[Rfam]
The family of this 96-nucleotide RNA from Trema orientale is "Small nucleolar RNA snoR31/Z110/Z27".
Pairs were carried over by alignment from the consensus structure, which was predicted with PFOLD.
The family's RNA type in Rfam is C/D-box small nucleolar RNA.
Rfam's curators write: This family contains several related snoRNAs including R31, Z27 and Z110.
RNA sequence: AUCAUCACAUGAUGAAAUUUGGAAAAAUCUUAGGACACCUUCCUACACAGUUUUGCCAAGCUGUGGAUGAGAAGAAACUUCCGUUCUGAUGAUGAU
Numbered sequence: 001a002u003c004a005u006c007a008c009a010u011g012a013u014g015a016a017a018u019u020u021g022g023a024a025a026a027a028u029c030u031u032a033g034g035a036c037a038c039c040u041u042c043c044u045a046c047a048c049a050g051u052u053u054u055g056c057c058a059a060g061c062u063g064u065g066g067a068u069g070a071g072a073a074g075a076a077a078c079u080u081c082c083g084u085u086c087u088g089a090u091g092a093u094g095a096u
Stems, first nucleotide, its partner, number of pairs: 001096007043050002